[Rfam]
RNA: COG3943 RNA
RNA sequence: CAUGCUCCACACAAAUUAUUAGUAAUUUGAGUCAGAGGCCAUCCAACUGAAGCAGUGAUGUAACACCAGUAGUUUUGAUUGCUUUAAAAGCAAUAGAAAGCUACGCAAGAGUGU
Numbered sequence: 001c002a003u004g005c006u007c008c009a010c011a012c013a014a015a016u017u018a019u020u021a022g023u024a025a026u027u028u029g030a031g032u033c034a035g036a037g038g039c040c041a042u043c044c045a046a047c048u049g050a051a052g053c054a055g056u057g058a059u060g061u062a063a064c065a066c067c068a069g070u071a072g073u074u075u076u077g078a079u080u081g082c083u084u085u086a087a088a089a090g091c092a093a094u095a096g097a098a099a100g101c102u103a104c105g106c107a108a109g110a111g112u113g114u
Stems, first nucleotide, its partner, number of pairs: 012029007040060003044057001063114004069104008078094006